[Rfam]
RNA sequence: UGUCAAGCUGUGACCCUCUAAAUGGAAGCACUUUCUUUUGUCUGAAAAAAAGAAACUGCCUUCAAUUAGAGUGUUAUGGUUUGAGA
Numbered sequence: 001u002g003u004c005a006a007g008c009u010g011u012g013a014c015c016c017u018c019u020a021a022a023u024g025g026a027a028g029c030a031c032u033u034u035c036u037u038u039u040g041u042c043u044g045a046a047a048a049a050a051a052g053a054a055a056c057u058g059c060c061u062u063c064a065a066u067u068a069g070a071g072u073g074u075u076a077u078g079g080u081u082u083g084a085g086a
Stems, first nucleotide, its partner, number of pairs: 001086001003084003007080008016071003020067002023064004028059003032055004038051002
RNA: mir-515 microRNA precursor family
Organism: Aotus nancymaae